[Rfam]
RNA sequence: UGCACAGUAUGGUACAUGCACUGAACAGUCUAUUCCUGUUGGUGUGUUCAAAAGACUGCAAUAGAAAUUUAAUUUCUGGUGUCAUUGGUCUUCUUGGCUUUGUGCAUGUUAAUGCUAGUAUUUCAAUUGAUACAAUA
Numbered sequence: 001u002g003c004a005c006a007g008u009a010u011g012g013u014a015c016a017u018g019c020a021c022u023g024a025a026c027a028g029u030c031u032a033u034u035c036c037u038g039u040u041g042g043u044g045u046g047u048u049c050a051a052a053a054g055a056c057u058g059c060a061a062u063a064g065a066a067a068u069u070u071a072a073u074u075u076c077u078g079g080u081g082u083c084a085u086u087g088g089u090c091u092u093c094u095u096g097g098c099u100u101u102g103u104g105c106a107u108g109u110u111a112a113u114g115c116u117a118g119u120a121u122u123u124c125a126a127u128u129g130a131u132a133c134a135a136u137a
Stems, first nucleotide, its partner, number of pairs: 002059003007056001015054001017052001018047004024040005062126001064124005069118003079105004
A member of the RNA family "Small nucleolar RNA SNORA8" from Octodon degus, 137 nucleotides long. Rfam's curators write: ACA8 is a member of the H/ACA class of snoRNA that guide the sites of modification of uridines to pseudouridines. A search with the family's covariance model found it, with a score of 101 bits. Rfam 15.1 lists 1,490 matches to the family in 610 species. Its Rfam clan is "SNORA8 clan". Pairs were carried over by alignment from the consensus structure, which was predicted with RNAfold. Its family is annotated with nucleolus and RNA processing in the Gene Ontology. The source organism's lineage runs through Eukaryota, Euteleostomi, Amniota, Eutheria and Octodon.